Notes:
Shown here is a 162-nucleotide RNA from Daucus carota, a member of the family "MIR396 microRNA precursor family". It scores 88 bits against the family's covariance model.

RNA sequence: AGUCAUGCUUUUCCACAGCUUUCUUGAACUUCAAUUCUAUAAACGUGUGUUUGAUCUUCUGAUCCUCCGUCGAUAUUUCACAUACACAUGAUAUGCAAAUAUAGAUGAAAUCGACAUUGCAUAUAUGUGGAAGUUCAAGAAAGCUGUGGGAAGACAUGGCAA
Numbered sequence: 001a002g003u004c005a006u007g008c009u010u011u012u013c014c015a016c017a018g019c020u021u022u023c024u025u026g027a028a029c030u031u032c033a034a035u036u037c038u039a040u041a042a043a044c045g046u047g048u049g050u051u052u053g054a055u056c057u058u059c060u061g062a063u064c065c066u067c068c069g070u071c072g073a074u075a076u077u078u079c080a081c082a083u084a085c086a087c088a089u090g091a092u093a094u095g096c097a098a099a100u101a102u103a104g105a106u107g108a109a110a111u112c113g114a115c116a117u118u119g120c121a122u123a124u125a126u127g128u129g130g131a132a133g134u135u136c137a138a139g140a141a142a143g144c145u146g147u148g149g150g151a152a153g154a155c156a157u158g159g160c161a162a
Base pairs, nucleotide, nucleotide: 003159004158005157006156007155013149014148015147017145018144019143020142021141022140024138025137026136027135029133030132031131032130